Rfam assigns this 266-nucleotide RNA from Virgibacillus phasianinus to the family "Bacterial large signal recognition particle RNA".
Pairs were carried over by alignment from the consensus structure, which is taken from published work.
A search with the family's covariance model found it, with a score of 224 bits.
RNA sequence: CCGUGCUAAGUGGGGAGGUAGCGGUGCCCUGUACUCGCAAUCCGCUAUAGCGAGACCGAAUUCCUAUCUGAGGUAUGACGACUUUAUGGUCUGCCGUAAGGAAUUGGUGUUGACGCUUAGGUCCUGCGCAAUAGAAACUCAUGAAUUCUGUCAGGUCCGGAAGGAAGCAGCAGUAAGUGAUCAUUUCUGUGUGCCGCAGGGAAGCCUAGGCCGAGCCAUGAACUUGCGUUACGCAUAGGGUUGCCAUAUCGAUGGUAGGUGCACGG
Numbered sequence: 001c002c003g004u005g006c007u008a009a010g011u012g013g014g015g016a017g018g019u020a021g022c023g024g025u026g027c028c029c030u031g032u033a034c035u036c037g038c039a040a041u042c043c044g045c046u047a048u049a050g051c052g053a054g055a056c057c058g059a060a061u062u063c064c065u066a067u068c069u070g071a072g073g074u075a076u077g078a079c080g081a082c083u084u085u086a087u088g089g090u091c092u093g094c095c096g097u098a099a100g101g102a103a104u105u106g107g108u109g110u111u112g113a114c115g116c117u118u119a120g121g122u123c124c125u126g127c128g129c130a131a132u133a134g135a136a137a138c139u140c141a142u143g144a145a146u147u148c149u150g151u152c153a154g155g156u157c158c159g160g161a162a163g164g165a166a167g168c169a170g171c172a173g174u175a176a177g178u179g180a181u182c183a184u185u186u187c188u189g190u191g192u193g194c195c196g197c198a199g200g201g202a203a204g205c206c207u208a209g210g211c212c213g214a215g216c217c218a219u220g221a222a223c224u225u226g227c228g229u230u231a232c233g234c235a236u237a238g239g240g241u242u243g244c245c246a247u248a249u250c251g252a253u254g255g256u257a258g259g260u261g262c263a264c265g266g
Base pairs, nucleotide, nucleotide: 001266002265003264004263005262006261010056011055012030013029014028015027017025019023034054035053036052037051038050063259064258065257066256067255068254072250073249074248075247076246079243080242081241082240083239084238085237086236087235088234092231093230099225100224101223104220106217107216108215115211116210117209118208119207120206121205122204123200124199125198126197127196128195129191130190132189133188134187135186136185139180140179141178142177148173149172150171151170156165157164158163
Rfam describes the family as follows. The signal recognition particle (SRP) is a universally conserved ribonucleoprotein involved in the co-translational targeting of proteins to membranes.